[Rfam]
RNA sequence: AGUUGGUCCAAUGGUAGUGAGUUAUUUCAGUUGAUUGUUCACAGUUGUAGAUCAAAUUCCUUGCUCUCCUCUUUUCCCCCUUCUCACUACUGUACUUGACUAUUAAUUU
Numbered sequence: 001a002g003u004u005g006g007u008c009c010a011a012u013g014g015u016a017g018u019g020a021g022u023u024a025u026u027u028c029a030g031u032u033g034a035u036u037g038u039u040c041a042c043a044g045u046u047g048u049a050g051a052u053c054a055a056a057u058u059c060c061u062u063g064c065u066c067u068c069c070u071c072u073u074u075u076c077c078c079c080c081u082u083c084u085c086a087c088u089a090c091u092g093u094a095c096u097u098g099a100c101u102a103u104u105a106a107u108u109u
Stems, first nucleotide, its partner, number of pairs: 002104001004102005010097002014093002016088006043067002

Rfam assigns this 109-nucleotide sequence from Piliocolobus tephrosceles to the family "Y RNA".
The literature on the family includes a 2000 paper in Nucleic Acids Res by Teunissen et al., "Conserved features of Y RNAs: a comparison of experimentally derived secondary structures".
It is annotated as a non-coding RNA gene.
Y RNAs are components of the Ro ribonucleoprotein particle (Ro RNP), in association with Ro60 and La proteins. The Y RNAs and Ro60 and La proteins are well conserved, but the function of the Ro RNP is not known. In humans the RNA component can be one of four small RNAs -- hY1, hY3, hY4 and hY5. These small RNAs are predicted to fold into a conserved secondary structure containing three stem structures.
The organism belongs to Piliocolobus, within Eukaryota.